RNA sequence: CUCUUAUCCAGAGAGGUGGAGGGACUGGCCCUUUGAAGCCUCGGCAGCGGACUCAUGCGAGUACUGUGCCAAUUCCAGUAGUGUAAUGCUUGAAGAUAAGAA
Numbered sequence: 001c002u003c004u005u006a007u008c009c010a011g012a013g014a015g016g017u018g019g020a021g022g023g024a025c026u027g028g029c030c031c032u033u034u035g036a037a038g039c040c041u042c043g044g045c046a047g048c049g050g051a052c053u054c055a056u057g058c059g060a061g062u063a064c065u066g067u068g069c070c071a072a073u074u075c076c077a078g079u080a081g082u083g084u085a086a087u088g089c090u091u092g093a094a095g096a097u098a099a100g101a102a
Stems, first nucleotide, its partner, number of pairs: 002101007013042005021031003025078004043070004048066002051062004074094001080090004
Rfam assigns this 102-nucleotide RNA sequence from Ornithinibacillus halotolerans to the family "SAM riboswitch aptamer (S box leader)". A search with the family's covariance model found it, with a score of 80 bits. Rfam's curators write: The SAM riboswitch is found upstream of a number of genes which code for proteins involved in methionine or cysteine biosynthesis in Gram-positive bacteria. The family's consensus secondary structure is taken from published work. The organism belongs to Ornithinibacillus, within Bacteria. Its family is annotated with regulation of gene expression in the Gene Ontology.